[Rfam]
RNA sequence: ACUAUGAUCCGCUGCUAUAUGAAUGUCUAGGCAAGAACAUAGG
Numbered sequence: 001a002c003u004a005u006g007a008u009c010c011g012c013u014g015c016u017a018u019a020u021g022a023a024u025g026u027c028u029a030g031g032c033a034a035g036a037a038c039a040u041a042g043g
Base pairs, nucleotide, nucleotide: 003041004040005039006038008036009035013033014032015030016029017028

Description: This 43-nucleotide sequence from Staphylococcus haemolyticus belongs to the Rfam family "Ribosomal protein L19 leader". This family is a putative r-protein leader autoregulatory structure found in B. subtilis and other low-GC Gram-positive bacteria. It is located in the 5' untranslated regions of mRNAs encoding ribosomal protein L19 (rplS). Rfam classes the family as a cis-regulatory leader.